[Rfam]
RNA sequence: CCUUCACUGAUGAGGGAAUGGUUUUGACUUUCGUUCUUCUGAGCGCGCUGAAGCCACCUUUGCUACUCUGAGGAGG
Numbered sequence: 001c002c003u004u005c006a007c008u009g010a011u012g013a014g015g016g017a018a019u020g021g022u023u024u025u026g027a028c029u030u031u032c033g034u035u036c037u038u039c040u041g042a043g044c045g046c047g048c049u050g051a052a053g054c055c056a057c058c059u060u061u062g063c064u065a066c067u068c069u070g071a072g073g074a075g076g
Stems, first nucleotide, its partner, number of pairs: 001076003005072001
This 76-nucleotide RNA from Ramphastos sulfuratus belongs to the Rfam family "Small nucleolar RNA SNORD59".
Gene Ontology terms of the family: nucleolus and RNA processing.
It scores 64 bits against the family's covariance model.
The family's consensus secondary structure was predicted with ILM.
The family is grouped with related families in Rfam's "SNORD59 clan".